[Rfam]
RNA sequence: GGCUCGCGUCCAUUCACAACGGAUCGUCCGGCACGUACCUGCCGGUGAAGGAGAACAAC
Numbered sequence: 001g002g003c004u005c006g007c008g009u010c011c012a013u014u015c016a017c018a019a020c021g022g023a024u025c026g027u028c029c030g031g032c033a034c035g036u037a038c039c040u041g042c043c044g045g046u047g048a049a050g051g052a053g054a055a056c057a058a059c
Base pairs, nucleotide, nucleotide: 010051011050013049014048015047016046028045029044030043031042032041033040
Dot-bracket structure: .........((.((((...........((((((......))))))))))))........
The record is a 59-nucleotide RNA sequence from Plantibacter sp. Leaf314, which matches "msiK RNA" in Rfam. It scores 66 bits against the family's covariance model. The family's consensus secondary structure is taken from published work.